[Rfam]
RNA: Qrr RNA
Organism: Vibrio tapetis
RNA sequence: UGACUCGAAAGAGUCACCUAGCCAACUGACGUUGUUAGUGAACUUAGUUUUCACAAAAUGAAGCCAGCAGGAUUUAUUCCUACUGGCUAUUUUUUU
Number, nucleotide and partner (000 for none) at each position: 001u016002g015003a014004c013005u012006c011007g000008a000009a000010a000011g006012a005013g004014u003015c002016a001017c000018c000019u000020a000021g000022c000023c000024a000025a000026c000027u000028g000029a000030c000031g000032u061033u060034g059035u058036u000037a000038g054039u053040g052041a051042a050043c000044u000045u000046a000047g000048u000049u000050u042051u041052c040053a039054c038055a000056a000057a000058a035059u034060g033061a032062a000063g000064c086065c085066a084067g083068c000069a081070g080071g079072a000073u000074u000075u000076a000077u000078u000079c071080c070081u069082a000083c067084u066085g065086g064087c000088u000089a000090u000091u000092u000093u000094u000095u000096u000